RNA sequence: GACGGCGCAGUUGGGUUAAUCAGCAUUCACCUUGCCUUUUACCAGAUGAAUCCUUGGCUCACUGCACGAAGCCGCAUUCUCAAUCUUUGGAACACCCUUGAUUCAAUUCGCGU
Numbered sequence: 001g002a003c004g005g006c007g008c009a010g011u012u013g014g015g016u017u018a019a020u021c022a023g024c025a026u027u028c029a030c031c032u033u034g035c036c037u038u039u040u041a042c043c044a045g046a047u048g049a050a051u052c053c054u055u056g057g058c059u060c061a062c063u064g065c066a067c068g069a070a071g072c073c074g075c076a077u078u079c080u081c082a083a084u085c086u087u088u089g090g091a092a093c094a095c096c097c098u099u100g101a102u103u104c105a106a107u108u109c110g111c112g113u
Base pairs, nucleotide, nucleotide: 003074004073005072006071008064009063010062011061013060014059015058016057017056018055025051026050027049028048029047031045032044094113095112097110
The family of this 113-nucleotide RNA from Zymoseptoria brevis is "U5 spliceosomal RNA". It scores 40 bits against the family's covariance model. Rfam classes the family as a spliceosomal small nuclear RNA. Pairs were carried over by alignment from the consensus structure, which is taken from published work. Rfam describes the family as follows. U5 RNA is a component of both types of known spliceosome. The precise function of this molecule is unknown, though it is known that the 5' loop is required for splice site selection and p220 binding, and that both the 3' stem-loop and the Sm site are important for Sm protein binding and cap methylation.